[Rfam]
The family of this 112-nucleotide sequence from Treponema vincentii is "TD-1 RNA". It scores 76 bits against the family's covariance model. Rfam classes the family as a cis-regulatory element. The organism belongs to Treponema vincentii, within Bacteria.
RNA sequence: GUUAACCGUCGAGUUUGCCGUUCGGCAAACAUCGCUUAUUGGCGUGUGCGCUGCCGCGCACCAAUGCAACAGUUUCCAAAGUUCAAACUUUGUUCAACUGUUGCAUUUUAAG
Numbered sequence: 001g002u003u004a005a006c007c008g009u010c011g012a013g014u015u016u017g018c019c020g021u022u023c024g025g026c027a028a029a030c031a032u033c034g035c036u037u038a039u040u041g042g043c044g045u046g047u048g049c050g051c052u053g054c055c056g057c058g059c060a061c062c063a064a065u066g067c068a069a070c071a072g073u074u075u076c077c078a079a080a081g082u083u084c085a086a087a088c089u090u091u092g093u094u095c096a097a098c099u100g101u102u103g104c105a106u107u108u109u110a111a112g
Stems, first nucleotide, its partner, number of pairs: 011033002013030007046061006064106011077092006